Alphaproteobacterial sRNA BjrC1505: a 141-nucleotide RNA sequence from Paramesorhizobium deserti. The literature on the family includes a 2012 paper in RNA Biol by Madhugiri et al., "Small RNAs of the Bradyrhizobium/Rhodopseudomonas lineage and their analysis". The organism belongs to Paramesorhizobium, within Bacteria.
RNA sequence: AACCGAGUUAACUCUUCAUUAAUCCUAAGCGUGUUAAAUGCUUGAUAUCCGGUUUAUCUGGAUACUUACCGAGUGGUUUUGCCACUCUGUUUGACGCCUCCCUGUUAAACUCCUGAGAGCCGCCUUUGCGGCUCUUUUUUU
Numbered sequence: 001a002a003c004c005g006a007g008u009u010a011a012c013u014c015u016u017c018a019u020u021a022a023u024c025c026u027a028a029g030c031g032u033g034u035u036a037a038a039u040g041c042u043u044g045a046u047a048u049c050c051g052g053u054u055u056a057u058c059u060g061g062a063u064a065c066u067u068a069c070c071g072a073g074u075g076g077u078u079u080u081g082c083c084a085c086u087c088u089g090u091u092u093g094a095c096g097c098c099u100c101c102c103u104g105u106u107a108a109a110c111u112c113c114u115g116a117g118a119g120c121c122g123c124c125u126u127u128g129c130g131g132c133u134c135u136u137u138u139u140u141u
Base pairs, nucleotide, nucleotide: 001043002042004040005014006013015037016036021034024031047063048062049061050060071087072086073085074084075083076082093106094105095104096103115136116135117134118133119132120131121130122129123128